[Rfam]
RNA sequence: CAUUCUAUUCGUAGGAAUAAAAAGAAGCAAAUCUUUUGUAUAUCCGAUAAGUAACAAUGCGCAAUGGUG
Numbered sequence: 001c002a003u004u005c006u007a008u009u010c011g012u013a014g015g016a017a018u019a020a021a022a023a024g025a026a027g028c029a030a031a032u033c034u035u036u037u038g039u040a041u042a043u044c045c046g047a048u049a050a051g052u053a054a055c056a057a058u059g060c061g062c063a064a065u066g067g068u069g
Base pairs, nucleotide, nucleotide: 003022004021006019007018008017009016010015044067045066051060052059053058
Rfam assigns this 69-nucleotide sequence from Trifolium pratense to the family "Plastid-clpP 5UTR RNA". It is annotated as a cis-regulatory element. A reference for the family is Richter et al. (2023), "Retrograde signaling in plants: A critical review focusing on the GUN pathway and beyond", Plant Commun. Lineage of the source: Eukaryota > Viridiplantae > Magnoliopsida > Fabales > Trifolium. Plastid clpP is a non-coding RNA (ncRNA) recognised in plastids. It was found in the prime untranslated region (5UTR) of a protease complex subunit (clpP) in plastids, suggesting a posible cis-regulatory function. The family's consensus secondary structure was predicted with LocARNA. Rfam 15.1 lists 2,105 matches to the family in 526 species.